This 169-nucleotide sequence from Geobacillus kaustophilus belongs to the Rfam family "SAM riboswitch aptamer (S box leader)". The organism belongs to Geobacillus kaustophilus, within Bacteria. Rfam's curators put it in the seed alignment.

RNA sequence: CUCUUAUCAAGAGUUGGCUGAGGGAAUUGGCCCAAUGAAGCCCAGCAACCGACCGUAAUACUAUCGUGAGAUAGGGCGCACGCCAAGGGCGGCGCCGGAAGCGUCAUGCUUCCGCAGGGCACGGUGCUAAGUCCAACAGAAAGACCGAUGUCUUUCUGAAAGAUAAGAG
Numbered sequence: 001c002u003c004u005u006a007u008c009a010a011g012a013g014u015u016g017g018c019u020g021a022g023g024g025a026a027u028u029g030g031c032c033c034a035a036u037g038a039a040g041c042c043c044a045g046c047a048a049c050c051g052a053c054c055g056u057a058a059u060a061c062u063a064u065c066g067u068g069a070g071a072u073a074g075g076g077c078g079c080a081c082g083c084c085a086a087g088g089g090c091g092g093c094g095c096c097g098g099a100a101g102c103g104u105c106a107u108g109c110u111u112c113c114g115c116a117g118g119g120c121a122c123g124g125u126g127c128u129a130a131g132u133c134c135a136a137c138a139g140a141a142a143g144a145c146c147g148a149u150g151u152c153u154u155u156c157u158g159a160a161a162g163a164u165a166a167g168a169g
Stems, first nucleotide, its partner, number of pairs: 001169008013043001016042003022033003027136004044128004049124002051120001053118002132161001137158008